Background:
This 103-nucleotide RNA from Saimiri boliviensis belongs to the Rfam family "Y RNA". About the family: Y RNAs are components of the Ro ribonucleoprotein particle (Ro RNP), in association with Ro60 and La proteins.
[Rfam]
RNA sequence: GGCUGGUCCAAAGGUAGUUAUCUCAGUUGAUUGUUCAGUGUCAGUAACAGAUUCUUGUUCUUCUCUUUCCCCAGUUCUCACUACUGCACUUGACUAAUCUAAA
Numbered sequence: 001g002g003c004u005g006g007u008c009c010a011a012a013g014g015u016a017g018u019u020a021u022c023u024c025a026g027u028u029g030a031u032u033g034u035u036c037a038g039u040g041u042c043a044g045u046a047a048c049a050g051a052u053u054c055u056u057g058u059u060c061u062u063c064u065c066u067u068u069c070c071c072c073a074g075u076u077c078u079c080a081c082u083a084c085u086g087c088a089c090u091u092g093a094c095u096a097a098u099c100u101a102a103a
Base pairs, nucleotide, nucleotide: 001099002098004096005095006094007093008092010091011090014087015086016082017081018080020078033065037061038060